[Rfam]
RNA sequence: UGCCAGCGUUAAGUCAAGGCUCCUUCCGCAUUUUGUGUGCGUUUCUCCCCAUGGAAGGAGACUGUUACAACUCUGGCAGAUCAAAGUCGGCCCGCCGCUAGACCCCGUUAUGGAUGUCUAGUAGAUCGCUUGCCGUCUUGGUUUGCUUUCAAAAGGGUUCGAGCGUGUUUCGUUUGAGUUGAGUACCUCUCCCGCUCAUUUGAGUGGCUCAUGGAGGCUCUCUUAGUUAUGAUUCACACAUCU
Dot-bracket structure: ..((((..........((.((((((((((((.....)))))............))))))).)).........))))..........((((.(....(((((((.((.....))..)))))))......(..((((...))))..)...........).))))..(((..((((.......(((..((((..((((((....))))))......))))..)))......))))..)))......
Shown here is a 243-nucleotide RNA from Aureobasidium vineae, a member of the family "Small nucleolar RNA snR191". It is annotated as an H/ACA-box small nucleolar RNA. The match comes from Rfam's covariance-model search (59 bits). The base pairs follow the family's consensus structure, which was predicted with WAR. The literature on the family includes a 2003 paper in RNA by Badis et al., "A snoRNA that guides the two most conserved pseudouridine modifications within rRNA confers a growth advantage in yeast". Taxonomically the source falls in Aureobasidium (Eukaryota, Fungi, Dothideomycetes, Dothideomycetidae). The family is grouped with related families in Rfam's "SNORA74 clan".